[Rfam]
RNA sequence: ACUUCAGAAGGGAGGUGGUUCGGCAGAUGUAUGCAGACCGGACGGAAGAGGUGGCUGCGGGCUAGUGGCCCGUCGCCGUACUCGGUUCGGUGCCGGACCAGCGUGUGUGUGAUGCGCGCAGCCGGCCCAAUCCAUCGCAGUCACCCGACCCGCGAGUCGCCGGUAUCGUCCGGCCGGCUCCUCCCCAGGGAGGAACCCGACUCGCGGGUCGUCUGCG
Numbered sequence: 001a002c003u004u005c006a007g008a009a010g011g012g013a014g015g016u017g018g019u020u021c022g023g024c025a026g027a028u029g030u031a032u033g034c035a036g037a038c039c040g041g042a043c044g045g046a047a048g049a050g051g052u053g054g055c056u057g058c059g060g061g062c063u064a065g066u067g068g069c070c071c072g073u074c075g076c077c078g079u080a081c082u083c084g085g086u087u088c089g090g091u092g093c094c095g096g097a098c099c100a101g102c103g104u105g106u107g108u109g110u111g112a113u114g115c116g117c118g119c120a121g122c123c124g125g126c127c128c129a130a131u132c133c134a135u136c137g138c139a140g141u142c143a144c145c146c147g148a149c150c151c152g153c154g155a156g157u158c159g160c161c162g163g164u165a166u167c168g169u170c171c172g173g174c175c176g177g178c179u180c181c182u183c184c185c186c187a188g189g190g191a192g193g194a195a196c197c198c199g200a201c202u203c204g205c206g207g208g209u210c211g212u213c214u215g216c217g
Stems, first nucleotide, its partner, number of pairs: 015058005060127004065122002068119002071116003146211013159178006
Dot-bracket structure: ..............(((((..................................))))).((((.((.((.(((........................................))).)).)).))))..................(((((((((((((((((((........))))))....................)))))))))))))......
Record summary:
Rfam assigns this 217-nucleotide RNA sequence from Streptomyces pilosus to the family "Actinobacteria sRNA Ms_IGR-5". A reference for the family is Li et al. (2013), "Identification of small RNAs in Mycobacterium smegmatis using heterologous Hfq", RNA. By type it is a small RNA.